[Rfam]
RNA: terC RNA
Organism: Affinirhizobium straminoryzae
RNA sequence: CCGGUGGUCCGGGCCCCUCUGGUGGAAGGUCGGCGCUUCCACGAUGUCGGACCUCUUUA
Dot-bracket structure: .....(((((((.........(((((((.......)))))))....)))))))......
Numbered sequence: 001c002c003g004g005u006g007g008u009c010c011g012g013g014c015c016c017c018u019c020u021g022g023u024g025g026a027a028g029g030u031c032g033g034c035g036c037u038u039c040c041a042c043g044a045u046g047u048c049g050g051a052c053c054u055c056u057u058u059a
Stems, first nucleotide, its partner, number of pairs: 006053007022042007